Description
chrB-a RNA: a 76-nucleotide RNA sequence. Pairs were carried over by alignment from the consensus structure, which is taken from published work. Rfam's curators put it in the seed alignment.
RNA sequence: CGCAUGGGGAAGCGAUCUCCUCAUGAGGCGACAUGCCAAAGAAUCGCGUCCGAUUGUUCCACAAGGACGCGCCAUG
Numbered sequence: 001c002g003c004a005u006g007g008g009g010a011a012g013c014g015a016u017c018u019c020c021u022c023a024u025g026a027g028g029c030g031a032c033a034u035g036c037c038a039a040a041g042a043a044u045c046g047c048g049u050c051c052g053a054u055u056g057u058u059c060c061a062c063a064a065g066g067a068c069g070c071g072c073c074a075u076g
Base pairs, nucleotide, nucleotide: 005023006022007021008020009019010018046070047069048068049067050066051065